The record is a 197-nucleotide RNA from Nostocoides sp. HKS02, which matches "c-di-AMP riboswitch aptamer (ydaO/yuaA leader)" in Rfam.
Lineage of the source: Bacteria > Actinomycetota > Micrococcales > Intrasporangiaceae > Nostocoides.
Gene Ontology terms of the family: regulation of gene expression and cyclic-di-AMP binding.
It scores 59 bits against the family's covariance model.
This family represents a conserved RNA structure found upstream of the ydaO and yuaA genes in Bacillus subtilis and related genes in other bacteria. The ydaO/yuaA element is thought to act as a genetic 'off' switch for the ydaO and yuaA genes in its native state. It is believed that the element may be triggered during osmotic shock leading to activation of ydaO, a predicted amino acid transporter gene, and members of the yuaA-yubG operon which code for KtrA and KtrB K+ transporters.

RNA sequence: CCUGUCACCACGCCCGAGUCCUCAGCAAGACCGCUUGACAGGAGCGGGGGACCCACUUUUGGGCCUUCCUCGGAAGGUCCUCGGGGUGAAGCCCUCACGCGCGAGCCCGCUAGGACGGGUGUUCAGACGUGAAGGCCGGGUGAACUACCUCCACCCGAACCCGACAGCUCACCUCGUAGGCGCUGGAGGUUCAAUCA
Numbered sequence: 001c002c003u004g005u006c007a008c009c010a011c012g013c014c015c016g017a018g019u020c021c022u023c024a025g026c027a028a029g030a031c032c033g034c035u036u037g038a039c040a041g042g043a044g045c046g047g048g049g050g051a052c053c054c055a056c057u058u059u060u061g062g063g064c065c066u067u068c069c070u071c072g073g074a075a076g077g078u079c080c081u082c083g084g085g086g087u088g089a090a091g092c093c094c095u096c097a098c099g100c101g102c103g104a105g106c107c108c109g110c111u112a113g114g115a116c117g118g119g120u121g122u123u124c125a126g127a128c129g130u131g132a133a134g135g136c137c138g139g140g141u142g143a144a145c146u147a148c149c150u151c152c153a154c155c156c157g158a159a160c161c162c163g164a165c166a167g168c169u170c171a172c173c174u175c176g177u178a179g180g181c182g183c184u185g186g187a188g189g190u191u192c193a194a195u196c197a
Base pairs, nucleotide, nucleotide: 011182012181013180014179019043020042021041044177045176046175047174048173049172054083084162085161086160092135093134095132096131097130098129099128138156139155140154141153